The record is a 94-nucleotide sequence from Jatropha curcas, which matches "MIR2275 microRNA precursor family" in Rfam. A search with the family's covariance model found it, with a score of 67 bits. The family has 13 seed sequences and 785 matches in Rfam 15.1. Rfam links the family to the GO terms RISC complex and miRNA-mediated post-transcriptional gene silencing.
[Rfam]
RNA sequence: AAGUUGUAUGUGAGGAUUGGAGGAAAUUAAAUAAAUUAACAUUGAAAAGUGCAACUAGUUUAUUUAAUUUCCUCCAAUAUCUCAUAUCCAGCCU
Number, nucleotide and partner (000 for none) at each position: 001a000002a000003g000004u091005u090006g089007u000008a087009u000010g000011u084012g083013a082014g081015g000016a078017u077018u076019g075020g074021a073022g000023g071024a070025a069026a068027u067028u066029a065030a064031a000032u062033a061034a060035a059036u000037u000038a000039a000040c000041a000042u000043u000044g000045a000046a000047a000048a000049g000050u000051g000052c000053a000054a000055c000056u000057a000058g000059u035060u034061u033062a032063u000064u030065u029066a028067a027068u026069u025070u024071c023072c000073u021074c020075c019076a018077a017078u016079a000080u000081c014082u013083c012084a011085u000086a000087u008088c000089c006090a005091g004092c000093c000094u000